[Rfam]
RNA sequence: UUAGGUAUGAUGAAACAAAAUCAUUCGGAUUCCCAAUGAGUUCAAUCUGUGAUAUCUACAACCAGCUACUUCUGACCUAG
Numbered sequence: 001u002u003a004g005g006u007a008u009g010a011u012g013a014a015a016c017a018a019a020a021u022c023a024u025u026c027g028g029a030u031u032c033c034c035a036a037u038g039a040g041u042u043c044a045a046u047c048u049g050u051g052a053u054a055u056c057u058a059c060a061a062c063c064a065g066c067u068a069c070u071u072c073u074g075a076c077c078u079a080g
Stems, first nucleotide, its partner, number of pairs: 001080005